[Rfam]
Notes:
tRNA: a 124-nucleotide RNA from Strongyloides venezuelensis. A search with the family's covariance model found it, with a score of 51 bits. NCBI's taxonomy places the organism under Eukaryota, Opisthokonta, Strongyloidoidea, Strongyloididae, Strongyloides.
RNA sequence: GGCGAAAUGGCCGAGUGGUCUAAGGCGUCAGACUCAAGUCACUAUCAGAUUUAUGCACGUUGUGCAGUACCGCGGGGUUUCUGAUCUCGUUAUCGAGGCGUGGGUUCGAAUCCCACUUUCGUCA
Number, nucleotide and partner (000 for none) at each position: 001g123002g122003c121004g120005a119006a118007a117008u000009g000010g026011c025012c024013g000014a000015g000016u000017g000018g000019u000020c000021u000022a000023a000024g012025g011026c010027g000028u084029c083030a082031g081032a080033c000034u000035c000036a000037a000038g000039u000040c000041a000042c000043u000044a000045u000046c000047a000048g000049a000050u000051u000052u000053a000054u000055g000056c000057a000058c000059g000060u000061u000062g000063u000064g000065c000066a000067g000068u000069a000070c000071c000072g000073c000074g000075g000076g000077g000078u000079u000080u032081c031082u030083g029084a028085u000086c000087u000088c000089g000090u000091u000092a000093u000094c000095g000096a000097g000098g000099c000100g116101u115102g114103g113104g112105u000106u000107c000108g000109a000110a000111u000112c104113c103114c102115a101116c100117u007118u006119u005120c004121g003122u002123c001124a000